[Rfam]
L17 ribosomal protein downstream element: a 57-nucleotide RNA sequence from Nicoliella spurrieriana. The match comes from Rfam's covariance-model search (37 bits).

RNA sequence: AGAACGUUAUGAUGAUGGGAAUCCCGAGUCUAGUUCGAAUGUAGAUUUUUAUCUACG
Numbered sequence: 001a002g003a004a005c006g007u008u009a010u011g012a013u014g015a016u017g018g019g020a021a022u023c024c025c026g027a028g029u030c031u032a033g034u035u036c037g038a039a040u041g042u043a044g045a046u047u048u049u050u051a052u053c054u055a056c057g
Base pairs, nucleotide, nucleotide: 002036003035004034005033011030012029013028017025018024019023040057041056042055043054044053045052

Taxonomically the source falls in Nicoliella (Bacteria, Bacillati, Lactobacillales, Lactobacillaceae).
The base pairs follow the family's consensus structure, which is taken from published work.